[Rfam]
RNA sequence: GACAAUAAUGGGGAUGGGGUUCCCCCGAUAACCGCCGCGAAGGCUGAUGACUCCUACCGGGCG
Numbered sequence: 001g002a003c004a005a006u007a008a009u010g011g012g013g014a015u016g017g018g019g020u021u022c023c024c025c026c027g028a029u030a031a032c033c034g035c036c037g038c039g040a041a042g043g044c045u046g047a048u049g050a051c052u053c054c055u056a057c058c059g060g061g062c063g
Base pairs, nucleotide, nucleotide: 010026011025012024013023016054017053018052019051020050021049034044035043036042
A member of the RNA family "Fluoride riboswitch aptamer (crcB RNA motif)" from Manganibacter manganicus, 63 nucleotides long. Taxonomically the source falls in Manganibacter (Bacteria, Pseudomonadati, Pseudomonadota, Hyphomicrobiales). The match comes from Rfam's covariance-model search (60 bits). The family has 289 seed sequences and 2,293 matches in Rfam 15.1.